[Rfam]
RNA: mir-86 microRNA precursor family
RNA sequence: UCGCCGGUUAAGUGAAUGCUUUGCCACAGUCUUAAAAAUGCGGUAAGCUGGGUGAAGGUUCGCUUAAGCCGGAGA
Numbered sequence: 001u002c003g004c005c006g007g008u009u010a011a012g013u014g015a016a017u018g019c020u021u022u023g024c025c026a027c028a029g030u031c032u033u034a035a036a037a038a039u040g041c042g043g044u045a046a047g048c049u050g051g052g053u054g055a056a057g058g059u060u061c062g063c064u065u066a067a068g069c070c071g072g073a074g075a
Base pairs, nucleotide, nucleotide: 004072005071006070009066010065011064012063013062014061015060016059017058019057020056021055023053024052025051027050028049029048